[Rfam]
The family of this 146-nucleotide RNA sequence from Paenibacillus contaminans is "c-di-AMP riboswitch aptamer (ydaO/yuaA leader)". Taxonomically the source falls in Paenibacillus (Bacteria, Bacillati, Bacillota, Caryophanales). It scores 84 bits against the family's covariance model.
RNA sequence: AAUUUGUUUGCGCUUAAUUUCCGAUUGUACAAAUCGGAAAGCGGGGGAACCACUUUUCUGGGGCGAAUCGAUUUGAAGGUUGAAUCGUAGGGAACCAUCUUUCCCGAGUCCGUCAGCUAACCUCGUCAGCAGGGGAUGGGUCAAAU
Numbered sequence: 001a002a003u004u005u006g007u008u009u010g011c012g013c014u015u016a017a018u019u020u021c022c023g024a025u026u027g028u029a030c031a032a033a034u035c036g037g038a039a040a041g042c043g044g045g046g047g048a049a050c051c052a053c054u055u056u057u058c059u060g061g062g063g064c065g066a067a068u069c070g071a072u073u074u075g076a077a078g079g080u081u082g083a084a085u086c087g088u089a090g091g092g093a094a095c096c097a098u099c100u101u102u103c104c105c106g107a108g109u110c111c112g113u114c115a116g117c118u119a120a121c122c123u124c125g126u127c128a129g130c131a132g133g134g135g136a137u138g139g140g141u142c143a144a145a146u
Base pairs, nucleotide, nucleotide: 012130013129014128018040019039020038021037022036023035024034025033026032041126042125043124044123045122046121051060052059061111062110063109069087070086071085072084090105091104092103093102